[Rfam]
RNA sequence: AUAAUGAUACUCCUGUCCAGUCACAAGCCGAGCGUUGAGAGCGUCCCACCUAAUGAGGGCAGUUUCGGGAGAUCCCCGGAAAGGUAUAAGUACCUGUGG
Numbered sequence: 001a002u003a004a005u006g007a008u009a010c011u012c013c014u015g016u017c018c019a020g021u022c023a024c025a026a027g028c029c030g031a032g033c034g035u036u037g038a039g040a041g042c043g044u045c046c047c048a049c050c051u052a053a054u055g056a057g058g059g060c061a062g063u064u065u066c067g068g069g070a071g072a073u074c075c076c077c078g079g080a081a082a083g084g085u086a087u088a089a090g091u092a093c094c095u096g097u098g099g
Stems, first nucleotide, its partner, number of pairs: 012096001013062006063081003067077003082095003